[Rfam]
Description:
Rfam assigns this 108-nucleotide sequence from Tenacibaculum lutimaris to the family "6S-Flavo RNA".
RNA sequence: ACUCAACGUUAUUCAAUUAUAAAGGAUGAGUCAUGGUUAGUAAAGCAUGCCGAUUUUACCUCGGAUCCUUGAUCAGCCAGUUAAUCCUAAACUUGUUUUUUGGAGUUU
Number, nucleotide and partner (000 for none) at each position: 001a000002c000003u000004c000005a000006a000007c000008g000009u000010u000011a000012u000013u000014c000015a000016a000017u000018u000019a000020u000021a000022a000023a088024g087025g086026a085027u084028g000029a000030g000031u000032c000033a000034u079035g078036g077037u076038u075039a000040g000041u000042a000043a070044a069045g068046c000047a000048u000049g000050c064051c063052g062053a061054u000055u000056u000057u000058a000059c000060c000061u053062c052063g051064g050065a000066u000067c000068c045069u044070u043071g000072a000073u000074c000075a038076g037077c036078c035079a034080g000081u000082u000083a000084a027085u026086c025087c024088u023089a000090a000091a000092c000093u000094u000095g000096u000097u000098u000099u000100u000101u000102g000103g000104a000105g000106u000107u000108u000